[Rfam]
6A RNA: a 51-nucleotide RNA. The base pairs follow the family's consensus structure, which is taken from published work. It is annotated as a small RNA.

RNA sequence: AGAAGCAGUCGUAGAGCGCGACUGCCGCGGAAAAAAGAAAGCUCACUGAGU
Number, nucleotide and partner (000 for none) at each position: 001a000002g000003a000004a000005g000006c024007a023008g022009u021010c020011g019012u000013a000014g044015a043016g042017c041018g000019c011020g010021a009022c008023u007024g006025c000026c000027g000028c000029g000030g000031a000032a000033a000034a000035a000036a000037g000038a000039a000040a000041g017042c016043u015044c014045a000046c000047u000048g000049a000050g000051u000